[Rfam]
RNA sequence: UGCAAUUUUAAGGCUAUAGCAGAAGUGUUUGUGGCAUGGCUGUGUCAGAUUUCAAUAAAUCUGCAAAAAUCUGCU
Numbered sequence: 001u002g003c004a005a006u007u008u009u010a011a012g013g014c015u016a017u018a019g020c021a022g023a024a025g026u027g028u029u030u031g032u033g034g035c036a037u038g039g040c041u042g043u044g045u046c047a048g049a050u051u052u053c054a055a056u057a058a059a060u061c062u063g064c065a066a067a068a069a070u071c072u073g074c075u
Base pairs, nucleotide, nucleotide: 012041013040014039015038018075019074020073021072022071023070025037026036027035046063047062048061049060050059051058052057
RNA: Mammalian CPEB3 ribozyme
Organism: Alligator sinensis